[Rfam]
RNA sequence: GAAGUGCGAACCAAGCCGGCGCGAAAACGCCGUAAGACUUGGAGCGGAUAGUCGUAAGGCUAUCUUGCA
Numbered sequence: 001g002a003a004g005u006g007c008g009a010a011c012c013a014a015g016c017c018g019g020c021g022c023g024a025a026a027a028c029g030c031c032g033u034a035a036g037a038c039u040u041g042g043a044g045c046g047g048a049u050a051g052u053c054g055u056a057a058g059g060c061u062a063u064c065u066u067g068c069a
Stems, first nucleotide, its partner, number of pairs: 011042005018031004046065008
The record is a 69-nucleotide sequence, which matches "Transposase-2 RNA" in Rfam. It is one of the family's seed sequences. By type it is a small RNA. Pairs were carried over by alignment from the consensus structure, which is taken from published work.